L31-Coriobacteria ribosomal protein leader: a 32-nucleotide RNA sequence from Berryella wangjianweii.

[Rfam]
RNA sequence: GACUUGGUCGGAAACCAAGUCAGGUAAAGGAG
Numbered sequence: 001g002a003c004u005u006g007g008u009c010g011g012a013a014a015c016c017a018a019g020u021c022a023g024g025u026a027a028a029g030g031a032g
Stems, first nucleotide, its partner, number of pairs: 001021008

On this family, see Eckert and Weinberg, BMC Microbiol 2020: "Discovery of 20 novel ribosomal leader candidates in bacteria and archaea".
The family's RNA type in Rfam is cis-regulatory leader.
The base pairs follow the family's consensus structure, which is taken from published work.